[Rfam]
RNA sequence: AGCCUUUAUGUUACCCGUUCACUUUUGGAAGCUCGUGAAUGUUGUAUUAAAAGAGGCAUAAAUACAUGCUUUGUGGCUUUUUGUGCCCUAAAAUUUAGUAUAUUUGGUGUAGAAGGUAGAAGCUGUAUAAGUAACAGUU
Number, nucleotide and partner (000 for none) at each position: 001a000002g057003c056004c055005u054006u053007u052008a000009u049010g048011u000012u046013a045014c044015c000016c041017g040018u039019u038020c037021a036022c035023u000024u000025u000026u000027g000028g000029a000030a000031g000032c000033u000034c000035g022036u021037g020038a019039a018040u017041g016042u000043u000044g014045u013046a012047u000048u010049a009050a000051a000052a007053g006054a005055g004056g003057c002058a000059u000060a000061a000062a000063u000064a000065c000066a000067u000068g132069c131070u130071u129072u127073g126074u125075g124076g123077c122078u000079u000080u000081u114082u113083g000084u111085g110086c109087c107088c106089u000090a000091a000092a101093a000094u000095u000096u000097a000098g000099u000100a000101u092102a000103u000104u000105u000106g088107g087108u000109g086110u085111a084112g000113a082114a081115g000116g000117u000118a000119g000120a000121a000122g077123c076124u075125g074126u073127a072128u000129a071130a070131g069132u068133a000134a000135c000136a000137g000138u000139u000
RNA: Small nucleolar RNA SNORA13
Organism: Ictidomys tridecemlineatus